Source information: Rfam assigns this 103-nucleotide RNA sequence from Pan troglodytes to the family "Y RNA". Y RNAs are components of the Ro ribonucleoprotein particle (Ro RNP), in association with Ro60 and La proteins. The Y RNAs and Ro60 and La proteins are well conserved, but the function of the Ro RNP is not known. By type it is a non-coding RNA gene. The organism belongs to Pan, within Eukaryota. The family's consensus secondary structure is taken from published work.
[Rfam]
RNA sequence: GGCUGGUUGGAGUGCAGCGGUUUUUACAAUUAAUUGAUCAGAAGCAGUUAUAAAUUUAUCAUUUCCUUCUCCACUCCUGCUGCUUCAGUUGACUAAGCCUAAG
Number, nucleotide and partner (000 for none) at each position: 001g099002g098003c097004u095005g094006g093007u092008u091009g000010g090011a089012g000013u000014g086015c000016a081017g080018c079019g078020g077021u000022u000023u000024u000025u000026a000027c000028a000029a000030u000031u000032a064033a063034u000035u000036g060037a059038u000039c000040a000041g000042a000043a000044g000045c000046a000047g000048u000049u000050a000051u000052a000053a000054a000055u000056u000057u000058a000059u037060c036061a000062u000063u033064u032065c000066c000067u000068u000069c000070u000071c000072c000073a000074c000075u000076c000077c020078u019079g018080c017081u016082g000083c000084u000085u000086c014087a000088g000089u011090u010091g008092a007093c006094u005095a004096a000097g003098c002099c001100u000101a000102a000103g000